[Rfam]
RNA sequence: AAAAAGGGCCUUUAUCGUGUUUGGUACUCAGAACCUAACGGUUCUGGGCGGAAUCACAAUCAAGAGAUUUCGGAGGCAUAAUUUCUAUAUUUGGUGGCAGUUGGUACUCUUUAGGUCCGGCGCACCA
Numbered sequence: 001a002a003a004a005a006g007g008g009c010c011u012u013u014a015u016c017g018u019g020u021u022u023g024g025u026a027c028u029c030a031g032a033a034c035c036u037a038a039c040g041g042u043u044c045u046g047g048g049c050g051g052a053a054u055c056a057c058a059a060u061c062a063a064g065a066g067a068u069u070u071c072g073g074a075g076g077c078a079u080a081a082u083u084u085c086u087a088u089a090u091u092u093g094g095u096g097g098c099a100g101u102u103g104g105u106a107c108u109c110u111u112u113a114g115g116u117c118c119g120g121c122g123c124a125c126c127a
Base pairs, nucleotide, nucleotide: 008077009076010075011074012073013026014025015024016023017022027048028047029046030045031044032043033042034041035040049072050071051070052069053068054067055066097123098122100121101120102119103118104117106116107115108114
Shown here is a 127-nucleotide sequence from Mytilus coruscus, a member of the family "U11 spliceosomal RNA". Rfam 15.1 lists 2,595 matches to the family in 1,202 species. The base pairs follow the family's consensus structure, which is taken from published work. The organism belongs to Mytilus, within Eukaryota. Its Rfam clan is "U1 clan".